Shown here is an 89-nucleotide sequence from Massilia sp. WF1, a member of the family "Fluoride riboswitch aptamer (crcB RNA motif)". The source organism's lineage runs through Bacteria, Pseudomonadota, Burkholderiales, Oxalobacteraceae and Massilia.

RNA sequence: AUAAUCAGCGGAGAUGGCAUUCCUCCCCGUAUCGCUCGACACCGUUCGACACCAAACCGCCCUUCGGGGCUGAUGAUGCCUGCACGUUC
Numbered sequence: 001a002u003a004a005u006c007a008g009c010g011g012a013g014a015u016g017g018c019a020u021u022c023c024u025c026c027c028c029g030u031a032u033c034g035c036u037c038g039a040c041a042c043c044g045u046u047c048g049a050c051a052c053c054a055a056a057c058c059g060c061c062c063u064u065c066g067g068g069g070c071u072g073a074u075g076a077u078g079c080c081u082g083c084a085c086g087u088u089c
Stems, first nucleotide, its partner, number of pairs: 010026004016080006059070004